Rfam assigns this 185-nucleotide sequence from Xenorhabdus innexi to the family "6S / SsrS RNA".
A search with the family's covariance model found it, with a score of 130 bits.
Lineage of the source: Bacteria > Pseudomonadati > Pseudomonadota > Morganellaceae > Xenorhabdus.
Pairs were carried over by alignment from the consensus structure, which is taken from published work.
About the family: E. coli 6S RNA was the first non coding RNA to be sequenced, but its function was unknown until recently. It consists of 184 nucleotides that fold into an extended hairpin structure with a large single-stranded internal bulge. The 6S RNA specifically associates with RNA polymerase holoenzyme containing the sigma70 specificity factor. This interaction represses expression from a sigma70-dependent promoter during stationary phase. 6S RNA homologs have recently been identified in most bacterial genomes.
Rfam classes the family as a non-coding RNA gene.
RNA sequence: AUUUCUCUGAGGUGUUCGUGAGCGGGGAUGUCCCCUGAGCCGAUAUUUCAUAUCUGAUAGAAUGUGGUGCUCCGUUUCUUGUGAGCAUGCUUGGCUAGUCCAAGAAGCCUAAUAGGGGCGACACCAUGUUCACCUUGAACCAAGGGUUCAAGGGUUACCACCUGCAGCGGCAUCUUGGAGAACCC
Numbered sequence: 001a002u003u004u005c006u007c008u009g010a011g012g013u014g015u016u017c018g019u020g021a022g023c024g025g026g027g028a029u030g031u032c033c034c035c036u037g038a039g040c041c042g043a044u045a046u047u048u049c050a051u052a053u054c055u056g057a058u059a060g061a062a063u064g065u066g067g068u069g070c071u072c073c074g075u076u077u078c079u080u081g082u083g084a085g086c087a088u089g090c091u092u093g094g095c096u097a098g099u100c101c102a103a104g105a106a107g108c109c110u111a112a113u114a115g116g117g118g119c120g121a122c123a124c125c126a127u128g129u130u131c132a133c134c135u136u137g138a139a140c141c142a143a144g145g146g147u148u149c150a151a152g153g154g155u156u157a158c159c160a161c162c163u164g165c166a167g168c169g170g171c172a173u174c175u176u177g178g179a180g181a182a183c184c185c
Stems, first nucleotide, its partner, number of pairs: 003182013017169003032154003036150006060131003064127006071121001073120007085108002090104005